[Rfam]
RNA sequence: CGCCAGCAGCAGCACAGAAGUAAGGGUGGCAUGGUAUGGUACUCCCACCCUUACUUCCGUGCUGCUGCUAGUG
Numbered sequence: 001c002g003c004c005a006g007c008a009g010c011a012g013c014a015c016a017g018a019a020g021u022a023a024g025g026g027u028g029g030c031a032u033g034g035u036a037u038g039g040u041a042c043u044c045c046c047a048c049c050c051u052u053a054c055u056u057c058c059g060u061g062c063u064g065c066u067g068c069u070a071g072u073g
Base pairs, nucleotide, nucleotide: 001073002072003071005069006068007067008066009065010064011063012062013061014060015059017056019055020054021053022052023051024050025049026048
About this RNA
This 73-nucleotide RNA sequence from Terrapene triunguis belongs to the Rfam family "mir-16 microRNA precursor family". Its family is annotated with miRNA-mediated post-transcriptional gene silencing and RISC complex in the Gene Ontology. The family has 14 seed sequences and 4,705 matches in Rfam 15.1.